[Rfam]
RNA sequence: ACAUUGUUCGAUAAAAUACCCCGUAUAAUCCCGGUAAUAUGGUCUGGGAGUCUCUACAGAGUGGCCGUAAAUCACUCUACUAUGGACGGAAAUUCUGUUAAU
Numbered sequence: 001a002c003a004u005u006g007u008u009c010g011a012u013a014a015a016a017u018a019c020c021c022c023g024u025a026u027a028a029u030c031c032c033g034g035u036a037a038u039a040u041g042g043u044c045u046g047g048g049a050g051u052c053u054c055u056a057c058a059g060a061g062u063g064g065c066c067g068u069a070a071a072u073c074a075c076u077c078u079a080c081u082a083u084g085g086a087c088g089g090a091a092a093u094u095c096u097g098u099u100a101a102u
Stems, first nucleotide, its partner, number of pairs: 021085005029049006058078007
Dot-bracket structure: ....................(((((...((((((.........))))))........(((((((.......)))))))..))))).................